[Rfam]
Shown here is a 102-nucleotide RNA from Apostasia shenzhenica, a member of the family "Small nucleolar RNA snoR99".
Its family is annotated with nucleolus and RNA processing in the Gene Ontology.
Lineage of the source: Eukaryota > Tracheophyta > Magnoliopsida > Petrosaviidae > Apostasia.
The family's RNA type in Rfam is H/ACA-box small nucleolar RNA.
For this family Rfam cites "Experimental RNomics: identification of 140 candidates for small non-messenger RNAs in the plant Arabidopsis thaliana" (Marker et al., Curr Biol, 2002).
It scores 64 bits against the family's covariance model.

RNA sequence: AUGCCUUUGGGAUGAUCCGGUCCCUUACAUAUACUCGCAUCUGUUUCACUUUGUCAGCUUUUUGAAAAUAACUUGAAGCUGAUCAUUCAAGAUGCAACAACC
Numbered sequence: 001a002u003g004c005c006u007u008u009g010g011g012a013u014g015a016u017c018c019g020g021u022c023c024c025u026u027a028c029a030u031a032u033a034c035u036c037g038c039a040u041c042u043g044u045u046u047c048a049c050u051u052u053g054u055c056a057g058c059u060u061u062u063u064g065a066a067a068a069u070a071a072c073u074u075g076a077a078g079c080u081g082a083u084c085a086u087u088c089a090a091g092a093u094g095c096a097a098c099a100a101c102c
Base pairs, nucleotide, nucleotide: 037095038094039093040092041091053083054082055081056080057079058078059077060076